[Rfam]
RNA sequence: CCUGCCGAGGAGCGUUGCGACCCGAAUCCAUUCGGGCCAGGCUCGGCGAUGGGGGUCAAUUUUUCCAACGGCGCUCACUCACG
Number, nucleotide and partner (000 for none) at each position: 001c000002c000003u048004g047005c046006c045007g044008a043009g000010g000011a000012g000013c000014g000015u000016u000017g000018c000019g000020a000021c036022c035023c034024g033025a032026a031027u000028c000029c000030a000031u026032u025033c024034g023035g022036g021037c000038c000039a000040g000041g000042c000043u008044c007045g006046g005047c004048g003049a000050u000051g000052g000053g000054g000055g000056u000057c000058a000059a000060u000061u000062u000063u000064u000065c000066c000067a000068a000069c000070g000071g000072c000073g000074c000075u000076c000077a000078c000079u000080c000081a000082c000083g000